[Rfam]
RNA sequence: GGGUGUCUGAGCCUUUCUGGUUCAGGCAAGACGCAGGUACCAGAAAUGCGAAGACCCCACUUGUUAAUCCAUUAACUCGUGAGGCCUGCAUGAAGUACCUUAACACUACUGAUUGUAGCCUCUUCCUUGCAGAGAGGUCAAAGUUUAUGACG
Numbered sequence: 001g002g003g004u005g006u007c008u009g010a011g012c013c014u015u016u017c018u019g020g021u022u023c024a025g026g027c028a029a030g031a032c033g034c035a036g037g038u039a040c041c042a043g044a045a046a047u048g049c050g051a052a053g054a055c056c057c058c059a060c061u062u063g064u065u066a067a068u069c070c071a072u073u074a075a076c077u078c079g080u081g082a083g084g085c086c087u088g089c090a091u092g093a094a095g096u097a098c099c100u101u102a103a104c105a106c107u108a109c110u111g112a113u114u115g116u117a118g119c120c121u122c123u124u125c126c127u128u129g130c131a132g133a134g135a136g137g138u139c140a141a142a143g144u145u146u147a148u149g150a151c152g
Stems, first nucleotide, its partner, number of pairs: 001058003005055004011049002014046008023037001026034002059080002063076005081122005089115002094110004127143002
RNA: sok antitoxin (CssrC)
Organism: Escherichia coli